[Rfam]
RNA sequence: CCUUUUGAAUCGCUGAGUCCCUAGACAUAGGGAGCGGGGGAACCAACCGUGGCCGGCUCGUUGAUAGACGAGAGAUGCGUCCACAUGGGGUGAGUCUCGAGCAAUCGAGUAGGGCUACUCUUUGAGCCCGAAUCCGACAGCUAACCUCGUAAGCGUACAGAGAGGCAAC
Numbered sequence: 001c002c003u004u005u006u007g008a009a010u011c012g013c014u015g016a017g018u019c020c021c022u023a024g025a026c027a028u029a030g031g032g033a034g035c036g037g038g039g040g041a042a043c044c045a046a047c048c049g050u051g052g053c054c055g056g057c058u059c060g061u062u063g064a065u066a067g068a069c070g071a072g073a074g075a076u077g078c079g080u081c082c083a084c085a086u087g088g089g090g091u092g093a094g095u096c097u098c099g100a101g102c103a104a105u106c107g108a109g110u111a112g113g114g115c116u117a118c119u120c121u122u123u124g125a126g127c128c129c130g131a132a133u134c135c136g137a138c139a140g141c142u143a144a145c146c147u148c149g150u151a152a153g154c155g156u157a158c159a160g161a162g163a164g165g166c167a168a169c
Base pairs, nucleotide, nucleotide: 011155012154013153014152018033019032020031021030022029023028034150035149036148037147038146039145044087045086088135089134090133096109097108098107099106112129113128114127115126